[Rfam]
RNA sequence: GGCGGUGUGCUGCUCAGCCCCUUUCUGCUCUAUGCGGUGCUGGCGCUGCUGGUGACCGGCGUGUUGCGUGUGGUCCUGGCGAAGCUCGGGCUGGCGCGCUGGAUCUGGCACGAAGCGUUGUUCGACUGUGCCCUG
Numbered sequence: 001g002g003c004g005g006u007g008u009g010c011u012g013c014u015c016a017g018c019c020c021c022u023u024u025c026u027g028c029u030c031u032a033u034g035c036g037g038u039g040c041u042g043g044c045g046c047u048g049c050u051g052g053u054g055a056c057c058g059g060c061g062u063g064u065u066g067c068g069u070g071u072g073g074u075c076c077u078g079g080c081g082a083a084g085c086u087c088g089g090g091c092u093g094g095c096g097c098g099c100u101g102g103a104u105c106u107g108g109c110a111c112g113a114a115g116c117g118u119u120g121u122u123c124g125a126c127u128g129u130g131c132c133c134u135g
Stems, first nucleotide, its partner, number of pairs: 002067010013051001015048004019043002023039001068133001076096001077094001078092003098131002102127001104125002108121003
The family of this 135-nucleotide sequence from Metapseudomonas resinovorans is "Pseudomonas sRNA P18". A search with the family's covariance model found it, with a score of 81 bits. Taxonomically the source falls in Metapseudomonas resinovorans (Bacteria, Pseudomonadota, Gammaproteobacteria, Metapseudomonas). It is annotated as a small RNA.